[Rfam]
RNA sequence: GUGCCGGGCCGUGACUGGCGCGAAGAGGUGGGCAACCACCGGGGAGCGGUCCGCGACUUCCCUGCCGCGCGCCUGGGCGACCCUG
Numbered sequence: 001g002u003g004c005c006g007g008g009c010c011g012u013g014a015c016u017g018g019c020g021c022g023a024a025g026a027g028g029u030g031g032g033c034a035a036c037c038a039c040c041g042g043g044g045a046g047c048g049g050u051c052c053g054c055g056a057c058u059u060c061c062c063u064g065c066c067g068c069g070c071g072c073c074u075g076g077g078c079g080a081c082c083c084u085g
Base pairs, nucleotide, nucleotide: 005053006052007051008050009049010048011047012046015043016042017073018072019071020070021069028039029038030037031036063079064078065077066076